[Rfam]
RNA: Acido-Lenti-1 RNA
RNA sequence: CCUGGGACUUGCGUCCCAGGCUGUUUCAUGGCAUGGCUUCGCCACU
Numbered sequence: 001c002c003u004g005g006g007a008c009u010u011g012c013g014u015c016c017c018a019g020g021c022u023g024u025u026u027c028a029u030g031g032c033a034u035g036g037c038u039u040c041g042c043c044a045c046u
Stems, first nucleotide, its partner, number of pairs: 001020008034044004